[Rfam]
RNA: Group II catalytic intron D1-D4-1
Organism: Rhodoferax antarcticus
RNA sequence: CGCGACCCGCAGCAAUGCGGGCCGUGACGAUGCAGAAGUCAGCAGCGGCCAUAGUAGGUAUUGGGGAGUCGCAGUACCGAAGGGC
Numbered sequence: 001c002g003c004g005a006c007c008c009g010c011a012g013c014a015a016u017g018c019g020g021g022c023c024g025u026g027a028c029g030a031u032g033c034a035g036a037a038g039u040c041a042g043c044a045g046c047g048g049c050c051a052u053a054g055u056a057g058g059u060a061u062u063g064g065g066g067a068g069u070c071g072c073a074g075u076a077c078c079g080a081a082g083g084g085c
Stems, first nucleotide, its partner, number of pairs: 001026002004023001006021006040045001048085003057078006